[Rfam]
RNA sequence: CGCAGGUGCAUUGUAGUCGCAUUGUCUGUUUCCCAAUAUAUCCUCCAGGCAAUACAACUGCAGUGCAAGCUCUG
Numbered sequence: 001c002g003c004a005g006g007u008g009c010a011u012u013g014u015a016g017u018c019g020c021a022u023u024g025u026c027u028g029u030u031u032c033c034c035a036a037u038a039u040a041u042c043c044u045c046c047a048g049g050c051a052a053u054a055c056a057a058c059u060g061c062a063g064u065g066c067a068a069g070c071u072c073u074g
Stems, first nucleotide, its partner, number of pairs: 001074002004071001006070001007067010019055001021053007